[Rfam]
RNA sequence: AGUACCUUUUAAAGAUUGUCCAGAGAGGCAGCAAAGGGAAAGACAAGGAAUCGGCACAUAAUUUUAUGAUGCUGUAGCUUGUCACACCCUAAAUUGCCUCACUCAUAAAAGGAGUGAGGCUUUUUCAUU
Numbered sequence: 001a002g003u004a005c006c007u008u009u010u011a012a013a014g015a016u017u018g019u020c021c022a023g024a025g026a027g028g029c030a031g032c033a034a035a036g037g038g039a040a041a042g043a044c045a046a047g048g049a050a051u052c053g054g055c056a057c058a059u060a061a062u063u064u065u066a067u068g069a070u071g072c073u074g075u076a077g078c079u080u081g082u083c084a085c086a087c088c089c090u091a092a093a094u095u096g097c098c099u100c101a102c103u104c105a106u107a108a109a110a111g112g113a114g115u116g117a118g119g120c121u122u123u124u125u126c127a128u129u
Stems, first nucleotide, its partner, number of pairs: 003039001005037005016031005047078001050075002053072001057068004092124002096120009

Shown here is a 129-nucleotide RNA sequence from Lysinibacillus odysseyi, a member of the family "PyrR binding site". For this family Rfam cites "Molecular recognition of pyr mRNA by the Bacillus subtilis attenuation regulatory protein PyrR" (Bonner et al., Nucleic Acids Res, 2001). NCBI's taxonomy places the organism under Bacteria, Bacillati, Bacillaceae, Lysinibacillus, Lysinibacillus odysseyi. The family's consensus secondary structure is taken from published work. It is annotated as a cis-regulatory element. The match comes from Rfam's covariance-model search (57 bits).